Overview
The family of this 302-nucleotide RNA from Anisodus acutangulus is "Plant signal recognition particle RNA". The family's consensus secondary structure is taken from published work. Gene Ontology terms of the family: SRP-dependent cotranslational protein targeting to membrane, signal sequence recognition and signal recognition particle, endoplasmic reticulum targeting. A search with the family's covariance model found it, with a score of 193 bits.

[Rfam]
RNA sequence: GCCGAGCUUGGUAACGCAAGCUUGUAACCCAAGUGGGGUAUUAAUGUGGUGGAAUGUUGGACUGAUCCAGAAGGUUGGGCUUUGUGGGAUAUUCUCUGACCUGUCCUCUCCAAGGAUAGAGUUAGGCUAUGCGGCAUAAGCGAAGCCCUGGGUUUGCUUGGCUCUUUAAAGUGGGGUGGAUUGCGUGAGGCUGGUUUCACAGCAACAAACAACUCCUGCUCUGUCCAGUGAAGGAUAACGGGUCGGUGUUCACUGAGUCCAAUGAAAACCUGAUGGGCUGCUCCAAUUAAACCACUACUUUU
Numbered sequence: 001g002c003c004g005a006g007c008u009u010g011g012u013a014a015c016g017c018a019a020g021c022u023u024g025u026a027a028c029c030c031a032a033g034u035g036g037g038g039u040a041u042u043a044a045u046g047u048g049g050u051g052g053a054a055u056g057u058u059g060g061a062c063u064g065a066u067c068c069a070g071a072a073g074g075u076u077g078g079g080c081u082u083u084g085u086g087g088g089a090u091a092u093u094c095u096c097u098g099a100c101c102u103g104u105c106c107u108c109u110c111c112a113a114g115g116a117u118a119g120a121g122u123u124a125g126g127c128u129a130u131g132c133g134g135c136a137u138a139a140g141c142g143a144a145g146c147c148c149u150g151g152g153u154u155u156g157c158u159u160g161g162c163u164c165u166u167u168a169a170a171g172u173g174g175g176g177u178g179g180a181u182u183g184c185g186u187g188a189g190g191c192u193g194g195u196u197u198c199a200c201a202g203c204a205a206c207a208a209a210c211a212a213c214u215c216c217u218g219c220u221c222u223g224u225c226c227a228g229u230g231a232a233g234g235a236u237a238a239c240g241g242g243u244c245g246g247u248g249u250u251c252a253c254u255g256a257g258u259c260c261a262a263u264g265a266a267a268a269c270c271u272g273a274u275g276g277g278c279u280g281c282u283c284c285a286a287u288u289a290a291a292c293c294a295c296u297a298c299u300u301u302u
Stems, first nucleotide, its partner, number of pairs: 001039002004023007028037003043301002046298007055289002057286003060282001062280001064278001067276003072271005077260006084253001086251003090248002096246009105234002109231001111230002114226009125163005131157003134153002137150002140147001166171001173216005182209001185206002191202003